[Rfam]
Shown here is a 51-nucleotide RNA from Rhodobacteraceae bacterium PARR1, a member of the family "serC leader". The family's RNA type in Rfam is cis-regulatory leader. From the family's description: This family is a putative regulatory RNA structure that is found upstream of the serC-serA operon in some alpha-proteobacteria. The final stem of the structure overlaps the ribosome binding site of the serC reading frame.

RNA sequence: CUGUGGGACACCCUACCCCAACGUAGGGCAGCACUCUGGAAGGAUGCCAUG
Numbered sequence: 001c002u003g004u005g006g007g008a009c010a011c012c013c014u015a016c017c018c019c020a021a022c023g024u025a026g027g028g029c030a031g032c033a034c035u036c037u038g039g040a041a042g043g044a045u046g047c048c049a050u051g
Stems, first nucleotide, its partner, number of pairs: 011028006032046002035044003
For this family Rfam cites "Evidence for a second class of S-adenosylmethionine riboswitches and other regulatory RNA motifs in alpha-proteobacteria" (Corbino et al., Genome Biol, 2005). It scores 46 bits against the family's covariance model.